A member of the RNA family "Bacterial large signal recognition particle RNA" from Acetivibrio saccincola, 264 nucleotides long. Its family is annotated with signal recognition particle, plasma membrane targeting and SRP-dependent cotranslational protein targeting to membrane, signal sequence recognition in the Gene Ontology. It is annotated as a non-coding RNA gene. About the family: The signal recognition particle (SRP) is a universally conserved ribonucleoprotein involved in the co-translational targeting of proteins to membranes. The family's consensus secondary structure is taken from published work.
RNA sequence: CCGUGCUAGACGGGGAGGUAGCGGUGCCCUGUACCUGCAAUCCGCUGUAGCAGGGUUGAAUUCCUUCUUAAGGCUUGUUUUUGUAAGGUCUGGCCUGUGUAAGUGGCAAUGAUGACCGGGUCCUACGCAACGUGACCCUAUGAACCCCGUCAGGUUCGGAAGAAAGCAGCGGUAAGUAGGCCCUCACGUGUGCCGUGGGAUAGCCUGGUUUGAGCUAACUGUACCGGUUCGCUUAUAAAUGCAAUGUCGAUGGAAGGUGCACGG
Numbered sequence: 001c002c003g004u005g006c007u008a009g010a011c012g013g014g015g016a017g018g019u020a021g022c023g024g025u026g027c028c029c030u031g032u033a034c035c036u037g038c039a040a041u042c043c044g045c046u047g048u049a050g051c052a053g054g055g056u057u058g059a060a061u062u063c064c065u066u067c068u069u070a071a072g073g074c075u076u077g078u079u080u081u082u083g084u085a086a087g088g089u090c091u092g093g094c095c096u097g098u099g100u101a102a103g104u105g106g107c108a109a110u111g112a113u114g115a116c117c118g119g120g121u122c123c124u125a126c127g128c129a130a131c132g133u134g135a136c137c138c139u140a141u142g143a144a145c146c147c148c149g150u151c152a153g154g155u156u157c158g159g160a161a162g163a164a165a166g167c168a169g170c171g172g173u174a175a176g177u178a179g180g181c182c183c184u185c186a187c188g189u190g191u192g193c194c195g196u197g198g199g200a201u202a203g204c205c206u207g208g209u210u211u212g213a214g215c216u217a218a219c220u221g222u223a224c225c226g227g228u229u230c231g232c233u234u235a236u237a238a239a240u241g242c243a244a245u246g247u248c249g250a251u252g253g254a255a256g257g258u259g260c261a262c263g264g
Base pairs, nucleotide, nucleotide: 001264002263003262004261005260006259009057010056011055012030013029014028015027017025019023034054035053036052037051038050063257064256065255066254067253068252072248073247074246076244078241080239081238082237083236084235085234086233087232092228095226097224098223099222100221103219104218105216106215107214114210115209116208117207118206119205120204121203122199123198124197125196126195127194128190129189131188132187133186134185135184137180138179139178140177141176147172148171149170150169155164156163157162